[Rfam]
RNA sequence: UCGGCAAACCGUUCUAUCGCUGCUUUUAUAAGGAGAGGAAAGUCCGGGCAACACAGAGUAACAUACUUCCUAACGGGAAGAAGGCUGAAGGGCUUUAGUAGUAGAGCAGAAAAUAACCGCUUCGAUGUAUGUCGGAGUAAGGGUGAAAAGGUGAGGUAAGAGCUCACCGGUACCUGUGGUGACAUGGGUAGCCGUGUACCUUAUGUGUUGCAAGAUCAAGUAUACCGGCAGUUUUAGGCUUACUCGGCCGAUGUCGGGGGGUAGAUUGCUCGAGACAUUUGGUGACAAAUGUCCUAGAUAAAUGAUAGAACCCUCCUGGAGGGAACAGGACCCGGCUUAUAGGUUUGCUUUUUUU
Numbered sequence: 001u002c003g004g005c006a007a008a009c010c011g012u013u014c015u016a017u018c019g020c021u022g023c024u025u026u027u028a029u030a031a032g033g034a035g036a037g038g039a040a041a042g043u044c045c046g047g048g049c050a051a052c053a054c055a056g057a058g059u060a061a062c063a064u065a066c067u068u069c070c071u072a073a074c075g076g077g078a079a080g081a082a083g084g085c086u087g088a089a090g091g092g093c094u095u096u097a098g099u100a101g102u103a104g105a106g107c108a109g110a111a112a113a114u115a116a117c118c119g120c121u122u123c124g125a126u127g128u129a130u131g132u133c134g135g136a137g138u139a140a141g142g143g144u145g146a147a148a149a150g151g152u153g154a155g156g157u158a159a160g161a162g163c164u165c166a167c168c169g170g171u172a173c174c175u176g177u178g179g180u181g182a183c184a185u186g187g188g189u190a191g192c193c194g195u196g197u198a199c200c201u202u203a204u205g206u207g208u209u210g211c212a213a214g215a216u217c218a219a220g221u222a223u224a225c226c227g228g229c230a231g232u233u234u235u236a237g238g239c240u241u242a243c244u245c246g247g248c249c250g251a252u253g254u255c256g257g258g259g260g261g262u263a264g265a266u267u268g269c270u271c272g273a274g275a276c277a278u279u280u281g282g283u284g285a286c287a288a289a290u291g292u293c294c295u296a297g298a299u300a301a302a303u304g305a306u307a308g309a310a311c312c313c314u315c316c317u318g319g320a321g322g323g324a325a326c327a328g329g330a331c332c333c334g335g336c337u338u339a340u341a342g343g344u345u346u347g348c349u350u351u352u353u354u355u
Base pairs, nucleotide, nucleotide: 003349004348005347006346007345008344009343010342011340012310013309014308015307016306017305018304020035021034023032024031025030040338041337042336044335045334046333047332048331049210050209051208052207056245057244058243059242061206062205063204064203065202066080067079068078069077070076081096082094083093085091097201098200101199102198103197105195117142118141119138120137121136122135123134124133125132126131150168151167152166153165154164155163170192171190172189173188174187175186176185177184178183214267215266216265217264225257226256227255228254229253237249238248239247240246274293275292276291277290278289279288280287281286
RNA: Bacterial RNase P class A